The family of this 93-nucleotide sequence from Caminicella sporogenes is "Selenocysteine transfer RNA". It scores 74 bits against the family's covariance model. Its family is annotated with triplet codon-amino acid adaptor activity in the Gene Ontology.

[Rfam]
RNA sequence: GGGAGUAGAUGGGUGCUGGUGUGCCCUCUGGUCUUCAAAACCAGUAUGAGGGGUUAGGAGCCUCUUGGGUGGGUUCGAUUCCCACAUACUCCC
Numbered sequence: 001g002g003g004a005g006u007a008g009a010u011g012g013g014u015g016c017u018g019g020u021g022u023g024c025c026c027u028c029u030g031g032u033c034u035u036c037a038a039a040a041c042c043a044g045u046a047u048g049a050g051g052g053g054u055u056a057g058g059a060g061c062c063u064c065u066u067g068g069g070u071g072g073g074u075u076c077g078a079u080u081c082c083c084a085c086a087u088a089c090u091c092c093c
Stems, first nucleotide, its partner, number of pairs: 001093007008085001011026006028044005048064004070084004